[Rfam]
RNA: Eukaryotic large subunit ribosomal RNA, nucleotides 646 to 924
Organism: Colletotrichum gloeosporioides
RNA sequence: GAGUUAACCUUAUAUAUAAGUGUUUAGGUGUUAAACCCCUACGCGUAAUAAAAGUGAACAUAAGUGAGAGCUUUAGCAUAUUAUUAACUGAUCCUAAUAUUCUCAGAUAGAUUUAAGUAAGAGCAUAUAAGGUUAGACCUAAAAGAAGGUAAACUAUAUAUAUAUAAGGUGAAGCUAGAGGAAACUCUAGUAGAAGCUUAUAGUAGUUCUAACAUGCAAAUUAAUUAUUAAAUAUAUAUAUAGGGGUGAAAAAUUAAUUAAACCUUCUAAUAGCUAGUU
Numbered sequence: 001g002a003g004u005u006a007a008c009c010u011u012a013u014a015u016a017u018a019a020g021u022g023u024u025u026a027g028g029u030g031u032u033a034a035a036c037c038c039c040u041a042c043g044c045g046u047a048a049u050a051a052a053a054g055u056g057a058a059c060a061u062a063a064g065u066g067a068g069a070g071c072u073u074u075a076g077c078a079u080a081u082u083a084u085u086a087a088c089u090g091a092u093c094c095u096a097a098u099a100u101u102c103u104c105a106g107a108u109a110g111a112u113u114u115a116a117g118u119a120a121g122a123g124c125a126u127a128u129a130a131g132g133u134u135a136g137a138c139c140u141a142a143a144a145g146a147a148g149g150u151a152a153a154c155u156a157u158a159u160a161u162a163u164a165u166a167a168g169g170u171g172a173a174g175c176u177a178g179a180g181g182a183a184a185c186u187c188u189a190g191u192a193g194a195a196g197c198u199u200a201u202a203g204u205a206g207u208u209c210u211a212a213c214a215u216g217c218a219a220a221u222u223a224a225u226u227a228u229u230a231a232a233u234a235u236a237u238a239u240a241u242a243g244g245g246g247u248g249a250a251a252a253a254u255u256a257a258u259u260a261a262a263c264c265u266u267c268u269a270a271u272a273g274c275u276a277g278u279u
Base pairs, nucleotide, nucleotide: 005135006134007133008132009131010130011129012128013127014126015125017123020044021043022042027037028036029035048055049054063085064084065083066082067081070077071076087118088117089115090114091113092111093110098105138277145267146266147265148264149263150262154243155242156241157240158239159238160237161236162235163234164233165231167199168198169197170196174191175190176189177188178187179186180185203228204227205226206225208224211222212221245255246254247253